[Rfam]
RNA: mir-460 microRNA precursor family
Organism: Labrus bergylta
RNA sequence: UGCUGAAGCCUCCUCAUUGUGCAUGCUGUGUGUAUCACUGUUUGUACCACACAGCGCCUGCAAUGUGGAGGCCGAGACA
Numbered sequence: 001u002g003c004u005g006a007a008g009c010c011u012c013c014u015c016a017u018u019g020u021g022c023a024u025g026c027u028g029u030g031u032g033u034a035u036c037a038c039u040g041u042u043u044g045u046a047c048c049a050c051a052c053a054g055c056g057c058c059u060g061c062a063a064u065g066u067g068g069a070g071g072c073c074g075a076g077a078c079a
Stems, first nucleotide, its partner, number of pairs: 012068002015065007024056001026054006